[Rfam]
RNA sequence: UGCUUGCUGUGAUGAAUCACAAGGACGGUAUCUGAGCUAGGUGGUACUUGAAGAAGGCCUCUCUCCUUGAUUAUACACCCUACACUGAUCAUAAUAUCUGAGCAAGCA
Numbered sequence: 001u002g003c004u005u006g007c008u009g010u011g012a013u014g015a016a017u018c019a020c021a022a023g024g025a026c027g028g029u030a031u032c033u034g035a036g037c038u039a040g041g042u043g044g045u046a047c048u049u050g051a052a053g054a055a056g057g058c059c060u061c062u063c064u065c066c067u068u069g070a071u072u073a074u075a076c077a078c079c080c081u082a083c084a085c086u087g088a089u090c091a092u093a094a095u096a097u098c099u100g101a102g103c104a105a106g107c108a
Stems, first nucleotide, its partner, number of pairs: 001108007036066001040062002
Small nucleolar RNA Z118/Z121/Z120: a 108-nucleotide RNA from Hordeum vulgare.
The base pairs follow the family's consensus structure, which was predicted with PFOLD.
Rfam classes the family as a C/D-box small nucleolar RNA.